[Rfam]
RNA sequence: ACUCUCCCCACUCUGCAUGGUCACACUAAGUUUUGCCCGUGUGACUUUCGUACAGGGGAGAGAGAGGAAAGAGCCCCUCUGGACCUUGGAUUGGCCUCACAGUAGCCUUUUCUUCCUUGAGAGGCACAACAGGA
Numbered sequence: 001a002c003u004c005u006c007c008c009c010a011c012u013c014u015g016c017a018u019g020g021u022c023a024c025a026c027u028a029a030g031u032u033u034u035g036c037c038c039g040u041g042u043g044a045c046u047u048u049c050g051u052a053c054a055g056g057g058g059a060g061a062g063a064g065a066g067g068a069a070a071g072a073g074c075c076c077c078u079c080u081g082g083a084c085c086u087u088g089g090a091u092u093g094g095c096c097u098c099a100c101a102g103u104a105g106c107c108u109u110u111u112c113u114u115c116c117u118u119g120a121g122a123g124g125c126a127c128a129a130c131a132g133g134a
Base pairs, nucleotide, nucleotide: 002066003065004064005063006062008060011058012057013056014055019046020045021044022043023042024041025040026039074124075123077121078120081117082116088112089111090110093107094106095105
Shown here is a 134-nucleotide RNA from Marmota monax, a member of the family "Small nucleolar RNA SNORA64/SNORA10 family". The family is grouped with related families in Rfam's "SNORA64 clan". From the family's description: This family belongs to the H/ACA class of small nucleolar RNAs (snoRNAs) which act as guides in the the modification of uridines to pseudouridines. This family includes the human snoRNAs U64 and ACA10 and mouse MBI-29. For this family Rfam cites "Nucleolar localization signals of box H/ACA small nucleolar RNAs" (Narayanan et al., EMBO J, 1999). The family's consensus secondary structure is taken from published work.